The record is a 155-nucleotide RNA from Tissierella sp. P1, which matches "M-box riboswitch aptamer (ykoK leader)" in Rfam. For this family Rfam cites "New RNA motifs suggest an expanded scope for riboswitches in bacterial genetic control" (Barrick et al., Proc Natl Acad Sci U S A, 2004). About the family: M-box riboswitch, also know as ykoK leader is described as a metaloregulatory RNA that sense divalent metals and function as a genetic control element of genes related to divalent metal transport in bacteria. It was first reported upstream of the B.subtilis ykoK gene and genes with related functions in other bacteria.
[Rfam]
RNA sequence: UAAUAAUCUCGGUAGGUGAGGUUACUAUAAGGAUAUGGAUUGCUGCCGUAAAAGGGUGGAAACACUCUGCACUGGUUAGCAGGUUUUGUCGCAAGGCUCAACCUAAUGCAAUUUCAGCGCCUUAUAAAGCCAAAACUUGAACGAGAAGAGUAAAU
Numbered sequence: 001u002a003a004u005a006a007u008c009u010c011g012g013u014a015g016g017u018g019a020g021g022u023u024a025c026u027a028u029a030a031g032g033a034u035a036u037g038g039a040u041u042g043c044u045g046c047c048g049u050a051a052a053a054g055g056g057u058g059g060a061a062a063c064a065c066u067c068u069g070c071a072c073u074g075g076u077u078a079g080c081a082g083g084u085u086u087u088g089u090c091g092c093a094a095g096g097c098u099c100a101a102c103c104u105a106a107u108g109c110a111a112u113u114u115c116a117g118c119g120c121c122u123u124a125u126a127a128a129g130c131c132a133a134a135a136c137u138u139g140a141a142c143g144a145g146a147a148g149a150g151u152a153a154a155u
Base pairs, nucleotide, nucleotide: 005151007149008148009147011142013094015137016136017135020131021130022129026126027125028124029123030122031121032120039112040111041110042109043108046074048072049071055066056065057064058063082103083102084101085100088097089096090095